[Rfam]
RNA sequence: GCUUGUAUGAUGAUUUUCUUUCUUUAGUCGGAUACCCCUUCACUCUUAAUCAUGAGUGAGACUUUUAAAUCUGACAAGC
Numbered sequence: 001g002c003u004u005g006u007a008u009g010a011u012g013a014u015u016u017u018c019u020u021u022c023u024u025u026a027g028u029c030g031g032a033u034a035c036c037c038c039u040u041c042a043c044u045c046u047u048a049a050u051c052a053u054g055a056g057u058g059a060g061a062c063u064u065u066u067a068a069a070u071c072u073g074a075c076a077a078g079c
Stems, first nucleotide, its partner, number of pairs: 001079005

Overview: The record is a 79-nucleotide RNA sequence from Esox lucius, which matches "Small nucleolar RNA SNORD101" in Rfam. NCBI's taxonomy places the organism under Eukaryota, Craniata, Euteleostomi, Clupeocephala, Esox. Rfam links the family to the GO terms RNA processing and nucleolus. Pairs were carried over by alignment from the consensus structure, which was predicted with PFOLD. A reference for the family is Vitali et al. (2003), "Identification of 13 novel human modification guide RNAs", Nucleic Acids Res. Its Rfam clan is "SNORD101 clan".